[Rfam]
RNA sequence: UGGUUGGCUUAGCUCAGCGGCUCAUUUGGCAGCGUCUAACUAAUCGCGUGGCACGUGGGCCUUCCAUCAGGUCAAGUAGAUCGAAACUCGCGGGUGCUCACUACUCCUUUU
Numbered sequence: 001u002g003g004u005u006g007g008c009u010u011a012g013c014u015c016a017g018c019g020g021c022u023c024a025u026u027u028g029g030c031a032g033c034g035u036c037u038a039a040c041u042a043a044u045c046g047c048g049u050g051g052c053a054c055g056u057g058g059g060c061c062u063u064c065c066a067u068c069a070g071g072u073c074a075a076g077u078a079g080a081u082c083g084a085a086a087c088u089c090g091c092g093g094g095u096g097c098u099c100a101c102u103a104c105u106c107c108u109u110u111u
Base pairs, nucleotide, nucleotide: 002106003105005103006102007101012095013094014093015092017091018090019089020088025085026084027083028082029081
Shown here is a 111-nucleotide RNA from Octodon degus, a member of the family "Vault RNA".
On this family, see Stadler et al., Mol Biol Evol 2009: "Evolution of Vault RNAs".
Pairs were carried over by alignment from the consensus structure, which is taken from published work.
The organism belongs to Octodon, within Eukaryota.